Rfam assigns this 74-nucleotide RNA sequence from Sarcophilus harrisii to the family "tRNA". Rfam describes the family as follows. Transfer RNA (tRNA) molecules are approximately 80 nucleotides in length. The base pairs follow the family's consensus structure, which is taken from published work.

RNA sequence: GUUAAGAUGGCAGAGUUGAUAAUUGCAUAAAGUUUAAGCCUUUACUACCAAAGGUUCAAACCCUCUUCUUAACA
Numbered sequence: 001g002u003u004a005a006g007a008u009g010g011c012a013g014a015g016u017u018g019a020u021a022a023u024u025g026c027a028u029a030a031a032g033u034u035u036a037a038g039c040c041u042u043u044a045c046u047a048c049c050a051a052a053g054g055u056u057c058a059a060a061c062c063c064u065c066u067u068c069u070u071a072a073c074a
Base pairs, nucleotide, nucleotide: 001073002072003071004070005069006068007067010026011025012024013023028044029043030042031041032040050066052064053063054062